[Rfam]
RNA: azaaromatic riboswitch aptamer (yjdF RNA)
RNA sequence: AAACGCAAAGAUAAAAACACAACGUAUGGAAAAACCAUACAGACCCGGCCGGUAGUCCGGGCGCAGUCAGAGCCGACAAAUGGCGCAGUCUGUAAGUAACCUUCCUCCUUAGGUCGUCCCUUCUUUGCCGGACAUGU
Numbered sequence: 001a002a003a004c005g006c007a008a009a010g011a012u013a014a015a016a017a018c019a020c021a022a023c024g025u026a027u028g029g030a031a032a033a034a035c036c037a038u039a040c041a042g043a044c045c046c047g048g049c050c051g052g053u054a055g056u057c058c059g060g061g062c063g064c065a066g067u068c069a070g071a072g073c074c075g076a077c078a079a080a081u082g083g084c085g086c087a088g089u090c091u092g093u094a095a096g097u098a099a100c101c102u103u104c105c106u107c108c109u110u111a112g113g114u115c116g117u118c119c120c121u122u123c124u125u126u127g128c129c130g131g132a133c134a135u136g137u
Base pairs, nucleotide, nucleotide: 005128006127007126008125009124010123011122044061045060046059047058048057063093064092065091066090068088104113105112106111